[Rfam]
Shown here is a 122-nucleotide sequence from Nostoc punctiforme, a member of the family "Nitrogen stress-induced RNA 9". The family's consensus secondary structure was predicted with RNAalifold. Rfam links the family to the GO term heterocyst differentiation. Taxonomically the source falls in Nostoc punctiforme (Bacteria, Cyanophyceae, Nostocaceae, Nostoc).
RNA sequence: UACUAUAUUCACGUCUGUGAGUGUGACUAAUACCUAAUUAGUCACUGUUGCUGAUUGUUGGGAAGGUGUAGGGACAACCCUUUAGGGUUUUCCUGCAUGACGGGCAUCUCUUGUAGAUGCCC
Dot-bracket structure: .....(.(((.((.(.((.((((((((((.........)))))))....))).)).).)).))).)(((((((..((((......)))).)))))))....((((((((.....))))))))